RNA: Group II catalytic intron D1-D4-1
Organism: Anaeromicropila herbilytica
RNA sequence: AAAUACUUGUAGUGAUACAAGAGUGAGAUGUGAGAAGUCAGAAAAAGCCAUAGUAGUGGUGACGUCUAGGGAGACUUAGAAAGAGCGAAGGGC
Number, nucleotide and partner (000 for none) at each position: 001a000002a024003a000004u023005a000006c021007u020008u019009g018010u017011a016012g000013u000014g000015a000016u011017a010018c009019a008020a007021g006022a000023g004024u002025g000026a000027g000028a000029u000030g000031u000032g000033a000034g000035a000036a000037g000038u045039c000040a000041g000042a000043a000044a000045a038046a000047g093048c092049c091050a000051u000052a000053g000054u000055a000056g086057u085058g000059g000060u000061g000062a000063c000064g000065u080066c079067u078068a000069g000070g000071g000072a000073g000074a000075c000076u000077u000078a067079g066080a065081a000082a000083g000084a000085g057086c056087g000088a000089a000090g000091g049092g048093c047